RNA: Small nucleolar RNA SNORA51
RNA sequence: GGCCUCCUGGUACUUACUACAGUCUAUGUUCUUAUACAGGCUGUACAGAAAGAGGAGGCAAAGUAAACCUACCCCAUAUACACCCCCAGCCCAAGCCCUGUGCCCAGUCUGUAUUGUGAAUGGGGAGAUAUGC
Numbered sequence: 001g002g003c004c005u006c007c008u009g010g011u012a013c014u015u016a017c018u019a020c021a022g023u024c025u026a027u028g029u030u031c032u033u034a035u036a037c038a039g040g041c042u043g044u045a046c047a048g049a050a051a052g053a054g055g056a057g058g059c060a061a062a063g064u065a066a067a068c069c070u071a072c073c074c075c076a077u078a079u080a081c082a083c084c085c086c087c088a089g090c091c092c093a094a095g096c097c098c099u100g101u102g103c104c105c106a107g108u109c110u111g112u113a114u115u116g117u118g119a120a121u122g123g124g125g126a127g128a129u130a131u132g133c
Base pairs, nucleotide, nucleotide: 002059003058004057005056006055007054008053020043021042022041027036028035029034072125073124074123075122076121077120087111088110089109091107095103096102